[Rfam]
RNA sequence: AAAGGAAUGAUGCCGAAUUCCCUUAUCGGGAAACGGGGGAACCACAAACGGGUGAAUUGGUCUCGAAAGCAAGGGACCAUAGGGAUCCUUCAACCGAACCCUCAGCUAACCUCGUAGGCACGGAAGGAGUUUCG
Numbered sequence: 001a002a003a004g005g006a007a008u009g010a011u012g013c014c015g016a017a018u019u020c021c022c023u024u025a026u027c028g029g030g031a032a033a034c035g036g037g038g039g040a041a042c043c044a045c046a047a048a049c050g051g052g053u054g055a056a057u058u059g060g061u062c063u064c065g066a067a068a069g070c071a072a073g074g075g076a077c078c079a080u081a082g083g084g085a086u087c088c089u090u091c092a093a094c095c096g097a098a099c100c101c102u103c104a105g106c107u108a109a110c111c112u113c114g115u116a117g118g119c120a121c122g123g124a125a126g127g128a129g130u131u132u133c134g
Stems, first nucleotide, its partner, number of pairs: 011120004018032003033115006050101003058079007082095002
Source information: This 134-nucleotide RNA sequence from Paenibacillus contaminans belongs to the Rfam family "c-di-AMP riboswitch aptamer (ydaO/yuaA leader)". A search with the family's covariance model found it, with a score of 68 bits. Rfam's curators write: This family represents a conserved RNA structure found upstream of the ydaO and yuaA genes in Bacillus subtilis and related genes in other bacteria.